The family of this 85-nucleotide sequence from Chelonoidis abingdonii is "Small nucleolar RNA SNORD87". The organism belongs to Chelonoidis nigra species complex, within Eukaryota.
RNA sequence: ACUGGCAUAAUGAUGAUUUCCUUUUUGCCGUUUACCCAACUGAAUGUAUUUCGUUGAUGUAUAUUUCUGAAUCUGAGAUGCCAGC
Numbered sequence: 001a002c003u004g005g006c007a008u009a010a011u012g013a014u015g016a017u018u019u020c021c022u023u024u025u026u027g028c029c030g031u032u033u034a035c036c037c038a039a040c041u042g043a044a045u046g047u048a049u050u051u052c053g054u055u056g057a058u059g060u061a062u063a064u065u066u067c068u069g070a071a072u073c074u075g076a077g078a079u080g081c082c083a084g085c
Stems, first nucleotide, its partner, number of pairs: 002084006
Dot-bracket structure: .((((((.......................................................................)))))).